About this RNA
This 56-nucleotide RNA from Kitasatospora viridis belongs to the Rfam family "msiK RNA". The match comes from Rfam's covariance-model search (50 bits).
RNA sequence: CAACCCAACCUUUACUCGGAUCGUCCGGCACGUUCCUGCCGGUGAAGGAGAACACC
Numbered sequence: 001c002a003a004c005c006c007a008a009c010c011u012u013u014a015c016u017c018g019g020a021u022c023g024u025c026c027g028g029c030a031c032g033u034u035c036c037u038g039c040c041g042g043u044g045a046a047g048g049a050g051a052a053c054a055c056c
Stems, first nucleotide, its partner, number of pairs: 009048006025042006